[Rfam]
About this RNA:
Shown here is a 130-nucleotide sequence from Lynx pardinus, a member of the family "Small nucleolar RNA SNORA11". Gene Ontology terms of the family: nucleolus and RNA processing. On this family, see Gu et al., Nucleic Acids Res 2005: "A novel experimental approach for systematic identification of box H/ACA snoRNAs from eukaryotes". The match comes from Rfam's covariance-model search (131 bits). The family's RNA type in Rfam is H/ACA-box small nucleolar RNA.

RNA sequence: GGGGUGUGCUCAGAGCAGGGGCCCUGAAGAAAUGGCUCCUCUGUUUACAACACACCCAGCAAGAAUCUGGGUUCAUUGUGACAAAGGGCACGGAAGUUGUGGCCUUCUUAUGAGCAGAUACUCUACAUGU
Numbered sequence: 001g002g003g004g005u006g007u008g009c010u011c012a013g014a015g016c017a018g019g020g021g022c023c024c025u026g027a028a029g030a031a032a033u034g035g036c037u038c039c040u041c042u043g044u045u046u047a048c049a050a051c052a053c054a055c056c057c058a059g060c061a062a063g064a065a066u067c068u069g070g071g072u073u074c075a076u077u078g079u080g081a082c083a084a085a086g087g088g089c090a091c092g093g094a095a096g097u098u099g100u101g102g103c104c105u106u107c108u109u110a111u112g113a114g115c116a117g118a119u120a121c122u123c124u125a126c127a128u129g130u
Stems, first nucleotide, its partner, number of pairs: 002057007013046009023035002070123002073120001077116003082112002085105003089101005